[Rfam]
RNA sequence: UCCCCCUUGGCUACACUCUGAAGACAAGCUUACUUCUCGAUGAUUGUUUUCAAUUUUAGUACAAGGCAAAGUAAAUUUUUACAGGUCUAUUACUCAUCAUAAUAUUCAGGCAAGCUUAUCCUAUGAGUAUUAUGGUCCAUGAAUUAGAUCUAUAU
Numbered sequence: 001u002c003c004c005c006c007u008u009g010g011c012u013a014c015a016c017u018c019u020g021a022a023g024a025c026a027a028g029c030u031u032a033c034u035u036c037u038c039g040a041u042g043a044u045u046g047u048u049u050u051c052a053a054u055u056u057u058a059g060u061a062c063a064a065g066g067c068a069a070a071g072u073a074a075a076u077u078u079u080u081a082c083a084g085g086u087c088u089a090u091u092a093c094u095c096a097u098c099a100u101a102a103u104a105u106u107c108a109g110g111c112a113a114g115c116u117u118a119u120c121c122u123a124u125g126a127g128u129a130u131u132a133u134g135g136u137c138c139a140u141g142a143a144u145u146a147g148a149u150c151u152a153u154a155u
Stems, first nucleotide, its partner, number of pairs: 007069003019052006026045002029042001084150004097135004102130006
Annotation:
A member of the RNA family "Small nucleolar RNA snR80" from Ophiocordyceps australis, 155 nucleotides long. The source organism's lineage runs through Eukaryota, Fungi, Dikarya, Hypocreales and Ophiocordyceps. The literature on the family includes a 2004 paper in Nucleic Acids Res by Schattner et al., "Genome-wide searching for pseudouridylation guide snoRNAs: analysis of the Saccharomyces cerevisiae genome". Rfam classes the family as an H/ACA-box small nucleolar RNA. The family's consensus secondary structure was predicted with WAR. Its family is annotated with RNA processing and nucleolus in the Gene Ontology. The match comes from Rfam's covariance-model search (44 bits).